[Rfam]
A member of the RNA family "Nucleoid-associated noncoding RNA 4 (CssrE)" from Shigella flexneri, 77 nucleotides long. The literature on the family includes a 2015 paper in MBio by Qian et al., "A New Noncoding RNA Arranges Bacterial Chromosome Organization". In E. coli small RNA transcribed from repeated extragenic palindromic element (REP325) called nucleoid-associated ncRNA 4 (nRNA4) collaborates HU protein in condensing the DNA. The secondary structure but not the sequence of the RNA is important in nucleoid condensation. Also identified in Shigella as CssrE. Lineage of the source: Bacteria > Pseudomonadota > Shigella > Shigella flexneri > Shigella flexneri 2a. A search with the family's covariance model found it, with a score of 85 bits.
RNA sequence: GGCCGGAUAAGGCGUUAACGCCGCAUCCGGCAAUGGUGAACGAUCCCUGAUGCGACGCUCACGCGUCUUAUCAGGCC
Numbered sequence: 001g002g003c004c005g006g007a008u009a010a011g012g013c014g015u016u017a018a019c020g021c022c023g024c025a026u027c028c029g030g031c032a033a034u035g036g037u038g039a040a041c042g043a044u045c046c047c048u049g050a051u052g053c054g055a056c057g058c059u060c061a062c063g064c065g066u067c068u069u070a071u072c073a074g075g076c077c
Stems, first nucleotide, its partner, number of pairs: 002031007011022004046075007054067005